[Rfam]
RNA sequence: CCUGCUCCUAGAGGCAUUGUAGGUGUGGCUGCUGUGUCACAUGCACGUCGGUAGGUGGCAGAGAGGAGAGAGGCUACAUCUACACUCAGUGUUCUGGCCUGUGAAUGUCUGCAUGAUUAGUAGCCUAAUAUU
Number, nucleotide and partner (000 for none) at each position: 001c000002c061003u060004g059005c058006u057007c055008c054009u053010a052011g000012a000013g049014g048015c047016a000017u000018u000019g046020u045021a000022g000023g000024u041025g040026u039027g038028g037029c036030u000031g000032c000033u000034g000035u000036g029037u028038c027039a026040c025041a024042u000043g000044c000045a020046c019047g015048u014049c013050g000051g000052u010053a009054g008055g007056u000057g006058g005059c004060a003061g002062a000063g000064a000065g000066g000067a000068g129069a000070g000071a126072g125073g124074c123075u122076a121077c120078a000079u000080c000081u000082a000083c115084a114085c000086u000087c111088a110089g109090u107091g106092u105093u104094c103095u000096g000097g000098c000099c000100u000101g000102u000103g094104a093105a092106u091107g090108u000109c089110u088111g087112c000113a000114u084115g083116a000117u000118u000119a000120g077121u076122a075123g074124c073125c072126u071127a000128a000129u068130a000131u000132u000
RNA: Small nucleolar RNA SNORA17